[Rfam]
RNA sequence: UCUUUAGCGUAAGUAUGUCCCAUGCAAUGUUUGGGAAAUACUUAUAAUAAAA
Numbered sequence: 001u002c003u004u005u006a007g008c009g010u011a012a013g014u015a016u017g018u019c020c021c022a023u024g025c026a027a028u029g030u031u032u033g034g035g036a037a038a039u040a041c042u043u044a045u046a047a048u049a050a051a052a
Base pairs, nucleotide, nucleotide: 006048009045010044011043012042014040015039016038018036019035020034021033022031